Rfam assigns this 119-nucleotide RNA sequence from Intestinimonas butyriciproducens to the family "TPP riboswitch aptamer (THI element)".
RNA sequence: AAUCGAAUACAGGGGCGCUGGACGCAAGUCCGGCUGAGAUGCAGGGGCGUAGCGCCGCCCCCGGUCCCUUGAACCUGAUCCGGGUAAUGCCGGCGUAGGAAGAUGAUUCGGCUUUUCAU
Numbered sequence: 001a002a003u004c005g006a007a008u009a010c011a012g013g014g015g016c017g018c019u020g021g022a023c024g025c026a027a028g029u030c031c032g033g034c035u036g037a038g039a040u041g042c043a044g045g046g047g048c049g050u051a052g053c054g055c056c057g058c059c060c061c062c063g064g065u066c067c068c069u070u071g072a073a074c075c076u077g078a079u080c081c082g083g084g085u086a087a088u089g090c091c092g093g094c095g096u097a098g099g100a101a102g103a104u105g106a107u108u109c110g111g112c113u114u115u116u117c118a119u
Stems, first nucleotide, its partner, number of pairs: 006107001008105002011069004016063001017034005041062001044059002074099004080093004
The source organism's lineage runs through Bacteria, Bacillati, Bacillota, Eubacteriales and Intestinimonas. A search with the family's covariance model found it, with a score of 58 bits.